Overview
Listeria sRNA rli61: a 135-nucleotide sequence from Listeria kieliensis. The base pairs follow the family's consensus structure, which was predicted with RNAalifold. It scores 54 bits against the family's covariance model. The family's RNA type in Rfam is cis-regulatory element. Taxonomically the source falls in Listeria (Bacteria, Bacilli, Caryophanales, Listeriaceae).

RNA sequence: UGGCUAUAAAUCAGUAAUUAUCCCCUUCAUCAGACUAGUUAUUUUAGCUUUUGAAUCAAUAUUUGAUUGUGUGAAUUUCUCCUUUUGAUUGCGCUGAAAGAAGUUGUACCCAUUGCGGUACAGCUUCUUUCGUUA
Dot-bracket structure: .((..((....((.(((.((.......................................)).)))....))...)).))................(((((((((((((((......)))))))))))))))....